[Rfam]
RNA sequence: CCGACCUGCCUUUCAGGCAUCCUCUCCCAAGACUUCCAAGGCCCGGCGGGUUUUCCCACCGGGCCUUUUUUUGUCCGCU
Numbered sequence: 001c002c003g004a005c006c007u008g009c010c011u012u013u014c015a016g017g018c019a020u021c022c023u024c025u026c027c028c029a030a031g032a033c034u035u036c037c038a039a040g041g042c043c044c045g046g047c048g049g050g051u052u053u054u055c056c057c058a059c060c061g062g063g064c065c066u067u068u069u070u071u072u073g074u075c076c077g078c079u
Stems, first nucleotide, its partner, number of pairs: 008018004041064006048057002
RNA: Makes More Granules Regulator RNA (mmgR)